A member of the RNA family "Glutamine riboswitch aptamer (glnA leader)", 57 nucleotides long. A reference for the family is Ames and Breaker (2011), "Bacterial aptamers that selectively bind glutamine", RNA Biol. The sequence is in the family's curated seed alignment.
[Rfam]
RNA sequence: AUCGUUCAUCUUUAUGAGAAUAAAGACGGAAGUAGACGAAAGUUGAAGGAACGCGCC
Numbered sequence: 001a002u003c004g005u006u007c008a009u010c011u012u013u014a015u016g017a018g019a020a021u022a023a024a025g026a027c028g029g030a031a032g033u034a035g036a037c038g039a040a041a042g043u044u045g046a047a048g049g050a051a052c053g054c055g056c057c
Stems, first nucleotide, its partner, number of pairs: 003053005009026007029054001035044003